[Rfam]
RNA sequence: GUCGACUACGGGUAUUCUUAGGUUGAUAAUACAAUUUUUCGUUGUUAUUGCUUGAGAAUACACGUAAUUGAC
Number, nucleotide and partner (000 for none) at each position: 001g072002u071003c070004g069005a068006c000007u000008a065009c064010g063011g000012g061013u060014a059015u058016u057017c056018u055019u054020a053021g052022g051023u050024u000025g049026a048027u047028a046029a045030u044031a043032c041033a000034a000035u000036u000037u000038u000039u000040c000041g032042u000043u031044g030045u029046u028047a027048u026049u025050g023051c022052u021053u020054g019055a018056g017057a016058a015059u014060a013061c012062a000063c010064g009065u008066a000067a000068u005069u004070g003071a002072c001
A member of the RNA family "mir-137 microRNA precursor family" from Mizuhopecten yessoensis, 72 nucleotides long. The source organism's lineage runs through Eukaryota, Protostomia, Mollusca, Pectinoidea and Mizuhopecten. The literature on the family includes a 2010 paper in BMC Genomics by Liu et al., "MicroRNAs of Bombyx mori identified by Solexa sequencing". Its family is annotated with RISC complex and miRNA-mediated post-transcriptional gene silencing in the Gene Ontology.